[Rfam]
RNA: SAM-Chlorobi RNA
Organism: Chlorobium limicola
RNA sequence: CGGCAUCCCCAUUACCUAUGGACACGGUGCCGCAGGCUCUUCCGGAAAAUUCUUUUCCGGAUCCUGCAGGAAAAAUUUUCCGUGUCCAG
Numbered sequence: 001c002g003g004c005a006u007c008c009c010c011a012u013u014a015c016c017u018a019u020g021g022a023c024a025c026g027g028u029g030c031c032g033c034a035g036g037c038u039c040u041u042c043c044g045g046a047a048a049a050u051u052c053u054u055u056u057c058c059g060g061a062u063c064c065u066g067c068a069g070g071a072a073a074a075a076u077u078u079u080c081c082g083u084g085u086c087c088a089g
Stems, first nucleotide, its partner, number of pairs: 001032007009021004033066004038061003044058004